Rfam assigns this 104-nucleotide RNA sequence from Prevotella sp. CAG:924 to the family "SAM-I/IV (S-adenosyl methionine) riboswitch aptamer". It scores 58 bits against the family's covariance model. The family's consensus secondary structure is taken from published work.
RNA sequence: GAAAUGCAUCAAGAGCGUAAUUGAUACGCACCAACCGAGCUUUAUGCUAUUGUAGCCACGGUGGUAAAAUGAUGUGGAUUGUCCAAUCAAAAAUCAAACAAUAU
Numbered sequence: 001g002a003a004a005u006g007c008a009u010c011a012a013g014a015g016c017g018u019a020a021u022u023g024a025u026a027c028g029c030a031c032c033a034a035c036c037g038a039g040c041u042u043u044a045u046g047c048u049a050u051u052g053u054a055g056c057c058a059c060g061g062u063g064g065u066a067a068a069a070u071g072a073u074g075u076g077g078a079u080u081g082u083c084c085a086a087u088c089a090a091a092a093a094u095c096a097a098a099c100a101a102u103a104u
Stems, first nucleotide, its partner, number of pairs: 006075005015029005030065003035061003039056002077088004